[Rfam]
RNA: Hepatitis C virus (HCV) cis-acting replication element (CRE)
RNA sequence: CCAUUGCGUGCCGCUGCCUUCCUUGAUUUAUCAGGUUGGUUUGUGGCAGGCUACAGCGGGGCGGACGUAUAUCACAGCGCGUCCCGAGCCCGACCCCACAUGUUACUCCUGUGCCUACUCCUACUUUCAGUAGGGGUAGGCAUCUUCCUGCUUCCAGCCCGAUAGGCUGGAAGCUAAAC
Dot-bracket structure: .....((.(((((..(.((..(((((....)))))..)).)..))))).))....(.((((.(((((............))))).........)))).)............(((((((((((((.....))))))))))))).......((((((((.(......))))))))).....